About this RNA:
A member of the RNA family "c-di-GMP-I riboswitch aptamer" from Paenibacillus sp. N3.4, 93 nucleotides long. GEMM was predicted in a large-scale screen for bacterial structured RNA regulatory elements. Its family is annotated with cyclic-di-GMP binding in the Gene Ontology. Lineage of the source: Bacteria > Bacillati > Bacilli > Caryophanales > Paenibacillus.
[Rfam]
RNA sequence: UAUCGACAAAGGCAAACCUGGCGAAAGCCAGCGACGCAAAGCUAUAGGGGCUUCUUUGUCCUUAACUGGACAUUCAGCCAGCCAGCCGCCCAA
Numbered sequence: 001u002a003u004c005g006a007c008a009a010a011g012g013c014a015a016a017c018c019u020g021g022c023g024a025a026a027g028c029c030a031g032c033g034a035c036g037c038a039a040a041g042c043u044a045u046a047g048g049g050g051c052u053u054c055u056u057u058g059u060c061c062u063u064a065a066c067u068g069g070a071c072a073u074u075c076a077g078c079c080a081g082c083c084a085g086c087c088g089c090c091c092a093a
Stems, first nucleotide, its partner, number of pairs: 012037002018031005041086003047083002049079003057072005